[Rfam]
Shown here is a 167-nucleotide RNA sequence from Thermomonospora cellulosilytica, a member of the family "c-di-AMP riboswitch aptamer (ydaO/yuaA leader)".
RNA sequence: CGACACCGGUCGCCGGGCCCGCACAGAGGACGACGGAGCCGGGGACCCACCUAUACCUGGGGUGAAUCGGCGCACCUGUCCCGGAUGACUCCGGGACGAGGAGCACCGUAGGGCGACUUCCAGCCCGAACCCGUCAGCUAACCCGGUAGGCGUCUGGAAGAAGGAGU
Number, nucleotide and partner (000 for none) at each position: 001c000002g000003a000004c000005a000006c000007c000008g000009g000010u000011c152012g151013c150014c149015g000016g000017g000018c000019c036020c035021g000022c000023a000024c000025a000026g000027a000028g000029g000030a000031c000032g000033a000034c000035g020036g019037a000038g147039c146040c145041g144042g143043g142044g000045a000046c000047c000048c059049a058050c000051c000052u000053a000054u000055a000056c000057c000058u049059g048060g132061g131062g130063u000064g000065a000066a000067u000068c108069g107070g106071c000072g000073c000074a000075c000076c000077u000078g000079u000080c000081c000082c000083g000084g000085a000086u000087g000088a000089c000090u000091c000092c000093g000094g000095g000096a000097c000098g000099a000100g000101g000102a000103g000104c000105a000106c070107c069108g068109u000110a000111g126112g125113g124114c123115g000116a000117c000118u000119u000120c000121c000122a000123g114124c113125c112126c111127g000128a000129a000130c062131c061132c060133g000134u000135c000136a000137g000138c000139u000140a000141a000142c043143c042144c041145g040146g039147u038148a000149g014150g013151c012152g011153u000154c000155u000156g000157g000158a000159a000160g000161a000162a000163g000164g000165a000166g000167u000